[Rfam]
RNA sequence: AGUCUUUUAAAUUCGUGUCAAAAUCUCGUCAGACAUCAGACCAUCAGGACUGGUGAGACUCCAAGUAUAAGUGAGGCA
Numbered sequence: 001a002g003u004c005u006u007u008u009a010a011a012u013u014c015g016u017g018u019c020a021a022a023a024u025c026u027c028g029u030c031a032g033a034c035a036u037c038a039g040a041c042c043a044u045c046a047g048g049a050c051u052g053g054u055g056a057g058a059c060u061c062c063a064a065g066u067a068u069a070a071g072u073g074a075g076g077c078a
Stems, first nucleotide, its partner, number of pairs: 002077005008071001011068002016063002021060001024058007
RNA: mir-3492 microRNA precursor family